[Rfam]
RNA: SAM riboswitch aptamer (S box leader)
RNA sequence: AUCUUAUCAAGAGAAGCUGAGGGACUGGCCCUAUGAAGCUUCAGCAACCGGUCCAUAACGAGUGAAGACCUGGAUUUUAGUUGAUUGUUCAAAGAAGAAAAAAAACCUUAAGUUGUUUUCUAUCCGCAUCUACAAAGCUUGCAGGUGCGGAUAGAAAACAAACAACAGUAUGGUUUACAACCUUUCUAAACAAUUUAAUCUAUCCUACUUAUCCUCCGAGUGCCAAGGUGCUAAUUCCAGCUAAGCAUGUAAGAUGCUUGAAAGAUAAGGG
Numbered sequence: 001a002u003c004u005u006a007u008c009a010a011g012a013g014a015a016g017c018u019g020a021g022g023g024a025c026u027g028g029c030c031c032u033a034u035g036a037a038g039c040u041u042c043a044g045c046a047a048c049c050g051g052u053c054c055a056u057a058a059c060g061a062g063u064g065a066a067g068a069c070c071u072g073g074a075u076u077u078u079a080g081u082u083g084a085u086u087g088u089u090c091a092a093a094g095a096a097g098a099a100a101a102a103a104a105a106c107c108u109u110a111a112g113u114u115g116u117u118u119u120c121u122a123u124c125c126g127c128a129u130c131u132a133c134a135a136a137g138c139u140u141g142c143a144g145g146u147g148c149g150g151a152u153a154g155a156a157a158a159c160a161a162a163c164a165a166c167a168g169u170a171u172g173g174u175u176u177a178c179a180a181c182c183u184u185u186c187u188a189a190a191c192a193a194u195u196u197a198a199u200c201u202a203u204c205c206u207a208c209u210u211a212u213c214c215u216c217c218g219a220g221u222g223c224c225a226a227g228g229u230g231c232u233a234a235u236u237c238c239a240g241c242u243a244a245g246c247a248u249g250u251a252a253g254a255u256g257c258u259u260g261a262a263a264g265a266u267a268a269g270g271g
Base pairs, nucleotide, nucleotide: 002270003269004268005267006266007265008264013042014041015040016039017038021031022030023029025240026239027238028237043232044231045230046229048228049227050224051223052222236263241260243259244258245257246256247255